[Rfam]
RNA sequence: GGGGAGCAUCAAAGAGUUUGAUGUUAUCUGAUACAAUCUUCCUAAAUAAAACUCUGCAUUUCCUGCUUGCGGAAGUUGAGUUUUGCUCCGCAAGUCUCACAUCUGCAAAGACACUA
Numbered sequence: 001g002g003g004g005a006g007c008a009u010c011a012a013a014g015a016g017u018u019u020g021a022u023g024u025u026a027u028c029u030g031a032u033a034c035a036a037u038c039u040u041c042c043u044a045a046a047u048a049a050a051a052c053u054c055u056g057c058a059u060u061u062c063c064u065g066c067u068u069g070c071g072g073a074a075g076u077u078g079a080g081u082u083u084u085g086c087u088c089c090g091c092a093a094g095u096c097u098c099a100c101a102u103c104u105g106c107a108a109a110g111a112c113a114c115u116a
Stems, first nucleotide, its partner, number of pairs: 001029003005025007053109001055107001065095008

This 116-nucleotide RNA sequence from Capsella rubella belongs to the Rfam family "Small nucleolar RNA snoR104". Its family is annotated with nucleolus and RNA processing in the Gene Ontology. The literature on the family includes a 2002 paper in Curr Biol by Marker et al., "Experimental RNomics: identification of 140 candidates for small non-messenger RNAs in the plant Arabidopsis thaliana". NCBI's taxonomy places the organism under Eukaryota, Embryophyta, Mesangiospermae, Camelineae, Capsella.